[Rfam]
This 132-nucleotide sequence from Tupaia belangeri belongs to the Rfam family "Small nucleolar RNA SNORA42/SNORA80 family". The source organism's lineage runs through Eukaryota, Teleostomi, Euteleostomi, Mammalia and Tupaia belangeri. It is annotated as an H/ACA-box small nucleolar RNA. Gene Ontology terms of the family: nucleolus and RNA processing. For this family Rfam cites "A computational screen for mammalian pseudouridylation guide H/ACA RNAs" (Schattner et al., RNA, 2006). About the family: The members of this family belong to the H/ACA class of snoRNAs that guide the sites of modification of uridines to pseudouridines. Human ACA42 (SNORA42) was cloned from HeLa cells by immunoprecipitation with anti-GAR1 antibody.
RNA sequence: ACAUGAGUUUGGAUUUAUGGUAGGCUUGUCCCUCUGGGCCUCUCAAAGUGCCCCAUGCCAGAACAAACUGGCCCCUAACUAUUACCUAGUCUUUGCCUAUGGGCAGGUGCAACUGAAGCGAGUUGCACAGAA
Numbered sequence: 001a002c003a004u005g006a007g008u009u010u011g012g013a014u015u016u017a018u019g020g021u022a023g024g025c026u027u028g029u030c031c032c033u034c035u036g037g038g039c040c041u042c043u044c045a046a047a048g049u050g051c052c053c054c055a056u057g058c059c060a061g062a063a064c065a066a067a068c069u070g071g072c073c074c075c076u077a078a079c080u081a082u083u084a085c086c087u088a089g090u091c092u093u094u095g096c097c098u099a100u101g102g103g104c105a106g107g108u109g110c111a112a113c114u115g116a117a118g119c120g121a122g123u124u125g126c127a128c129a130g131a132a
Base pairs, nucleotide, nucleotide: 002057003056004055005053007051008050015048016047018045019044020043022041023040024039025037026036069125070124071123072122074120080115081114086109087106089104090103091102092101